[Rfam]
RNA sequence: GAAGCAGGCCAGGCGGUCGCUGCGUGACCCUUCGGGGAUGCGCAGAGGAAAGUCGGGACACCAUCGGGCAGCGUAGCGGGUAACUCCCGUCCGCCGUGAGGCGAGGAUUAGAGCAACAGAGACGAGUCCAGCUGACGCAAGUUGGUUGGGGUGAAACGGGCAAUCUCUACGCGGUGCAACACCAAAUAGGCAGGCGUUGAUGUGGCCCACGGAGCCUGCGGGUAGGUGGCUUGAGCCCUGCGGCAACGCAGGGCCUUAGAGGAAUGAUCGUCAUAGCCCGCAAGGGCCGUAACAGAAUCCCGCUUACCGGCCUGCUUCACUU
Numbered sequence: 001g002a003a004g005c006a007g008g009c010c011a012g013g014c015g016g017u018c019g020c021u022g023c024g025u026g027a028c029c030c031u032u033c034g035g036g037g038a039u040g041c042g043c044a045g046a047g048g049a050a051a052g053u054c055g056g057g058a059c060a061c062c063a064u065c066g067g068g069c070a071g072c073g074u075a076g077c078g079g080g081u082a083a084c085u086c087c088c089g090u091c092c093g094c095c096g097u098g099a100g101g102c103g104a105g106g107a108u109u110a111g112a113g114c115a116a117c118a119g120a121g122a123c124g125a126g127u128c129c130a131g132c133u134g135a136c137g138c139a140a141g142u143u144g145g146u147u148g149g150g151g152u153g154a155a156a157c158g159g160g161c162a163a164u165c166u167c168u169a170c171g172c173g174g175u176g177c178a179a180c181a182c183c184a185a186a187u188a189g190g191c192a193g194g195c196g197u198u199g200a201u202g203u204g205g206c207c208c209a210c211g212g213a214g215c216c217u218g219c220g221g222g223u224a225g226g227u228g229g230c231u232u233g234a235g236c237c238c239u240g241c242g243g244c245a246a247c248g249c250a251g252g253g254c255c256u257u258a259g260a261g262g263a264a265u266g267a268u269c270g271u272c273a274u275a276g277c278c279c280g281c282a283a284g285g286g287c288c289g290u291a292a293c294a295g296a297a298u299c300c301c302g303c304u305u306a307c308c309g310g311c312c313u314g315c316u317u318c319a320c321u322u
Stems, first nucleotide, its partner, number of pairs: 001318010012272007020045007028037001050305003054302005059176004066208004071172005076090005091105001092103004106167002111165002113161002128150002131146006180228004190219006201211003235254008
The record is a 322-nucleotide RNA sequence from Usitatibacter rugosus, which matches "Bacterial RNase P class A" in Rfam. Taxonomically the source falls in Usitatibacter (Bacteria, Pseudomonadati, Pseudomonadota, Usitatibacteraceae). It is annotated as a ribozyme. It scores 225 bits against the family's covariance model. Its family is annotated with ribonuclease P activity, dimeric ribonuclease P complex and tRNA processing in the Gene Ontology.